[Rfam]
RNA sequence: AGGUAAUGUCUCCUAUCCGUUAUCAAUGGAGGCACUCGGUCAUGCUGUGGGUGGAGAACCACCUUAGACACAAUUUGUUGUCAGAAGGAUGGUGCGAGGAUGGGUUUGAUGCCCA
Numbered sequence: 001a002g003g004u005a006a007u008g009u010c011u012c013c014u015a016u017c018c019g020u021u022a023u024c025a026a027u028g029g030a031g032g033c034a035c036u037c038g039g040u041c042a043u044g045c046u047g048u049g050g051g052u053g054g055a056g057a058a059c060c061a062c063c064u065u066a067g068a069c070a071c072a073a074u075u076u077g078u079u080g081u082c083a084g085a086a087g088g089a090u091g092g093u094g095c096g097a098g099g100a101u102g103g104g105u106u107u108g109a110u111g112c113c114c115a
Base pairs, nucleotide, nucleotide: 002018003017007034008033009032010031011030012029013028035098036097037096038095039093040092041091042090043089045087046086049064050063051062052061053060054059067082068081069080070079101115102114103113104112105111
Description
A member of the RNA family "epsC RNA" from Bacillus sp. FJAT-49711, 115 nucleotides long. Taxonomically the source falls in Bacillus (Bacteria, Bacillati, Bacillota, Bacilli). It is annotated as a cis-regulatory element. A search with the family's covariance model found it, with a score of 102 bits.